Shown here is a 106-nucleotide RNA from Massilia psychrophila, a member of the family "Glycine riboswitch aptamer".

RNA sequence: GGAUCACACUCUGGAGAGCGGCCGCGGCGCACAGCCGGCGGCCCACCGAAGGGGCAGGCGGAUGUCAAUCCGCUAUCUCUCAGGUAUCAAGGACAGAGGGGCGCAA
Dot-bracket structure: ......(.(((((......((((((............)))))).(((((..(((...((((........))))...))))).)))........))))).)......